[Rfam]
RNA sequence: UCCCGCCCGUUGCGUGAGCGUCACGGCGCUCGCGCCUGAGCGGUCUUUUCAUCUGGUCGUGCCGCUGGGCCGGUAGGCCCACCGCCACGCGCUCCCCAGGAAACUACCCGGCCACGUUCGGGCAAGUCCUUGCGCAGUCUAUCCGCCGUUAGCCGGGUGCUUCGACGGAGCGAUGUAGAUAGCACGAUAGUUAU
Dot-bracket structure: ...(((.....((((((((((....))))))))))....)))..............((((((((.(((((......))))).))....((((.....(((..((..((((........))))...))))).))))..((..((((.((...((.....))..)).))))..))........)))))).......
A member of the RNA family "RT-15 RNA", 194 nucleotides long. The sequence is in the family's curated seed alignment. It is annotated as a small RNA.